Notes: This 65-nucleotide RNA sequence from Vigna angularis belongs to the Rfam family "Small nucleolar RNA Z105". It scores 58 bits against the family's covariance model. Its family is annotated with RNA processing and nucleolus in the Gene Ontology. Taxonomically the source falls in Vigna angularis (Eukaryota, Euphyllophyta, Fabales, Papilionoideae). The literature on the family includes a 2003 paper in Nucleic Acids Res by Chen et al., "The high diversity of snoRNAs in plants: identification and comparative study of 120 snoRNA genes from Oryza sativa". The family has 11 seed sequences and 621 matches in Rfam 15.1. Pairs were carried over by alignment from the consensus structure, which was predicted with CMfinder.
RNA sequence: UUGGCAUGAUGAUGAUAGUUUUGAAUAGAUUCAUAUGAUGAAUCUAAUCCUCCUACUCAUUCUGA
Numbered sequence: 001u002u003g004g005c006a007u008g009a010u011g012a013u014g015a016u017a018g019u020u021u022u023g024a025a026u027a028g029a030u031u032c033a034u035a036u037g038a039u040g041a042a043u044c045u046a047a048u049c050c051u052c053c054u055a056c057u058c059a060u061u062c063u064g065a
Base pairs, nucleotide, nucleotide: 006060007059008058009057022041026037